[Rfam]
Nucleotides: 071
Base pairs, nucleotide, nucleotide: 001070002069003068004067005066006065007064010024011023012022013021026042027041028040029039030038047063048062049061050060051059
Number, partner (000 for none) and nucleotide at each position: 001070g002069c003068g004067g005066a006065u007064g008000u009000a010024g011023u012022u013021a014000a015000g016000u017000g018000g019000u020000a021013u022012a023011a024010c025000c026042g027041u028040a029039g030038c031000c032000u033000u034000c035000c036000a037000c038030g039029c040028u041027a042026c043000u044000g045000a046000c047063a048062g049061g050060g051059g052000u053000u054000c055000g056000a057000u058000u059051c060050c061049c062048c063047u064007c065006a066005u067004u068003c069002g070001c071000u